The record is a 180-nucleotide RNA sequence from Staphylococcus aureus, which matches "Listeria sRNA rli28" in Rfam. It is one of the family's seed sequences. A reference for the family is Michels et al. (1991), "Muscarinic cholinergic control of vasopressin secretion from the acute hypothalamoneurohypophysial explant", Neuroendocrinology. By type it is a small RNA.
[Rfam]
Nucleotides: 180
Base pairs, nucleotide, nucleotide: 043152045150046149061096062095063094064093065092066091071088113132114131115130118128119127120126157175158174159173161172163170164169
Number, partner (000 for none) and nucleotide at each position: 001000g002000u003000a004000a005000u006000u007000a008000u009000g010000g011000u012000a013000a014000u015000a016000u017000g018000c019000a020000g021000a022000a023000g024000u025000g026000a027000g028000c029000a030000a031000g032000u033000u034000g035000g036000a037000u038000a039000g040000a041000u042000g043152g044000u045150g046149g047000c048000u049000a050000u051000c052000u053000g054000a055000g056000u057000a058000u059000a060000a061096g062095g063094a064093g065092g066091u067000g068000g069000u070000g071088c072000c073000u074000a075000u076000g077000g078000u079000g080000g081000c082000a083000u084000u085000a086000c087000u088071g089000a090000a091066a092065u093064c094063u095062u096061u097000a098000g099000a100000a101000a102000g103000g104000a105000g106000a107000c108000g109000c110000c111000u112000a113132a114131u115130g116000a117000u118128u119127a120126c121000a122000a123000u124000u125000a126120g127119u128118a129000c130115c131114a132113u133000g134000u135000u136000g137000c138000a139000g140000u141000u142000u143000g144000g145000u146000u147000u148000a149046u150045u151000c152043c153000u154000u155000a156000u157175u158174g159173c160000a161172u162000u163170g164169a165000u166000a167000g168000g169164u170163c171000u172161a173159g174158u175157a176000a177000u178000c179000a180000a